Rfam assigns this 83-nucleotide RNA from Anabas testudineus to the family "Small nucleolar RNA SNORD100". The organism belongs to Anabas, within Eukaryota. Pairs were carried over by alignment from the consensus structure, which was predicted with RNAalifold. Rfam 15.1 lists 838 matches to the family in 626 species. Its Rfam clan is "SNORD100 clan". It is annotated as a C/D-box small nucleolar RNA.
RNA sequence: GGUGUCACUGAUGAUAUCUUGGCUCCCUCUACUGAAUACUGUGAGGAGAUUGCCAUUGUUACCCAAUUUCUGUCUGAGAUGUA
Number, nucleotide and partner (000 for none) at each position: 001g000002g082003u081004g080005u079006c078007a000008c000009u000010g000011a000012u000013g000014a000015u000016a000017u000018c000019u000020u000021g000022g000023c000024u000025c000026c000027c000028u000029c000030u000031a000032c000033u000034g000035a000036a000037u000038a000039c000040u000041g000042u000043g000044a000045g000046g000047a000048g000049a000050u000051u000052g000053c000054c000055a000056u000057u000058g000059u000060u000061a000062c000063c000064c000065a000066a000067u000068u000069u000070c000071u000072g000073u000074c000075u000076g000077a000078g006079a005080u004081g003082u002083a000